[Rfam]
RNA sequence: GCUCGUCAUGCAGGAGAGAGUGGCCGCCCGCGCCACCGCCGAAGGCGCAAGCGCACCCGCAAUCGCUCAGGCAAAAGGACUGCAUCAUCGGA
Numbered sequence: 001g002c003u004c005g006u007c008a009u010g011c012a013g014g015a016g017a018g019a020g021u022g023g024c025c026g027c028c029c030g031c032g033c034c035a036c037c038g039c040c041g042a043a044g045g046c047g048c049a050a051g052c053g054c055a056c057c058c059g060c061a062a063u064c065g066c067u068c069a070g071g072c073a074a075a076a077g078g079a080c081u082g083c084a085u086c087a088u089c090g091g092a
Base pairs, nucleotide, nucleotide: 006087008085009084010083011082012081013080020036021035022034023033038072039071040070041068042067045066046065047064051060052059

Source information:
The record is a 92-nucleotide sequence from Chromobacterium sp. LK11, which matches "Glycine riboswitch aptamer" in Rfam. From the family's description: This family represents the bacterial glycine riboswitch. Rfam links the family to the GO term glycine biosynthetic process. Pairs were carried over by alignment from the consensus structure. The source organism's lineage runs through Bacteria, Pseudomonadati, Betaproteobacteria, Neisseriales and Chromobacterium. A search with the family's covariance model found it, with a score of 66 bits.